[Rfam]
RNA sequence: GGAGAUUUGAGAAGGGCUGUCCCUAGUACGAGAGGACCGGGACGGACGAACCUCUGGUGUGCCAGUUGUUCCGCCAGGAGCAUGGCUGGUUGGCUACGUUCGGAAGGGAUAACCGCUGAAAGCAUCUAAGCGGGAAGCCUGCUUCGAGAUGAGGUCUCCCACCACCUUGAGUGGUUAAGGCCCCCGAGUAGACGAUCGGGUUGAUAGGCCGGAUGUGGAAGCCUGGUAACAGGUGGAGCUGACCGGUACUAAUAGGCCGAGG
Numbered sequence: 001g002g003a004g005a006u007u008u009g010a011g012a013a014g015g016g017c018u019g020u021c022c023c024u025a026g027u028a029c030g031a032g033a034g035g036a037c038c039g040g041g042a043c044g045g046a047c048g049a050a051c052c053u054c055u056g057g058u059g060u061g062c063c064a065g066u067u068g069u070u071c072c073g074c075c076a077g078g079a080g081c082a083u084g085g086c087u088g089g090u091u092g093g094c095u096a097c098g099u100u101c102g103g104a105a106g107g108g109a110u111a112a113c114c115g116c117u118g119a120a121a122g123c124a125u126c127u128a129a130g131c132g133g134g135a136a137g138c139c140u141g142c143u144u145c146g147a148g149a150u151g152a153g154g155u156c157u158c159c160c161a162c163c164a165c166c167u168u169g170a171g172u173g174g175u176u177a178a179g180g181c182c183c184c185c186g187a188g189u190a191g192a193c194g195a196u197c198g199g200g201u202u203g204a205u206a207g208g209c210c211g212g213a214u215g216u217g218g219a220a221g222c223c224u225g226g227u228a229a230c231a232g233g234u235g236g237a238g239c240u241g242a243c244c245g246g247u248a249c250u251a252a253u254a255g256g257c258c259g260a261g262g
Base pairs, nucleotide, nucleotide: 001159002158003157004156005155006154007153008152011145012144013143014142017045018044019043020042021041022040023039047102048101049100050099051098055096056095057094062089063088064087065086066085067082068081069080070079071078072077106140107139108138113133114132115131116130117129162174163173164172176260179258180257181256182255183200184199185198186197187196205251206250207249208247209246210245211244212243215239221234222233223232224231225230

Overview
The record is a 262-nucleotide part of an RNA from Cryptosporangium arvum, which matches "Bacterial large subunit ribosomal RNA" in Rfam. The base pairs follow the family's consensus structure, which is taken from published work. Lineage of the source: Bacteria > Bacillati > Actinomycetota > Cryptosporangiales > Cryptosporangium arvum.